[Rfam]
RNA sequence: GUAUUCGGAUUCACAUCAAUCCACAUGUGUUGAGGUGGAUUGGUGUGGAACUUGAACUAAACUCCACUCCAACCCACACCAACACACACAUGGAUUGAAGUGAACCUGACA
Numbered sequence: 001g002u003a004u005u006c007g008g009a010u011u012c013a014c015a016u017c018a019a020u021c022c023a024c025a026u027g028u029g030u031u032g033a034g035g036u037g038g039a040u041u042g043g044u045g046u047g048g049a050a051c052u053u054g055a056a057c058u059a060a061a062c063u064c065c066a067c068u069c070c071a072a073c074c075c076a077c078a079c080c081a082a083c084a085c086a087c088a089c090a091u092g093g094a095u096u097g098a099a100g101u102g103a104a105c106c107u108g109a110c111a
Stems, first nucleotide, its partner, number of pairs: 005109004010104005016098008026088001027085006035077004040072004045067003
Rfam assigns this 111-nucleotide RNA from Sorghum bicolor to the family "MIR5565 microRNA precursor family". The organism belongs to Sorghum, within Eukaryota. The family's consensus secondary structure was predicted with RNAalifold. The match comes from Rfam's covariance-model search (89 bits).